Source information: Shown here is a 102-nucleotide sequence from Planococcus halotolerans, a member of the family "Purine riboswitch aptamer". Its family is annotated with purine nucleobase biosynthetic process in the Gene Ontology. Taxonomically the source falls in Planococcus (Bacteria, Bacillati, Bacillota, Bacilli).
RNA sequence: AAUUAUAAGUACAGGUGCCCUCAUAUAUGUCCGGUGAUAUGGAUCGGAUGUCUCUACCAAGUCUCCGGAAAUGACUUGACUAUGAAGGCGGAUGCCGCAUGC
Dot-bracket structure: .................((.(((((...(((((((.......)))))))........((((((.........))))))..))))).))..............
Numbered sequence: 001a002a003u004u005a006u007a008a009g010u011a012c013a014g015g016u017g018c019c020c021u022c023a024u025a026u027a028u029g030u031c032c033g034g035u036g037a038u039a040u041g042g043a044u045c046g047g048a049u050g051u052c053u054c055u056a057c058c059a060a061g062u063c064u065c066c067g068g069a070a071a072u073g074a075c076u077u078g079a080c081u082a083u084g085a086a087g088g089c090g091g092a093u094g095c096c097g098c099a100u101g102c
Stems, first nucleotide, its partner, number of pairs: 018088002021085005029049007058078006